RNA sequence: UAUAUUUGCGCCCUUGAUAGAUCGACUAUCAAAUACAUAAGAAUCAUUUAAAAGAAAUAUUGGCAUG
Numbered sequence: 001u002a003u004a005u006u007u008g009c010g011c012c013c014u015u016g017a018u019a020g021a022u023c024g025a026c027u028a029u030c031a032a033a034u035a036c037a038u039a040a041g042a043a044u045c046a047u048u049u050a051a052a053a054g055a056a057a058u059a060u061u062g063g064c065a066u067g
Base pairs, nucleotide, nucleotide: 014032015031016030017029018028019027
The family of this 67-nucleotide RNA from Galbibacter marinus is "S15-Flavobacteria ribosomal protein leader".
The base pairs follow the family's consensus structure, which is taken from published work.
By type it is a cis-regulatory leader.
It is one of the family's seed sequences.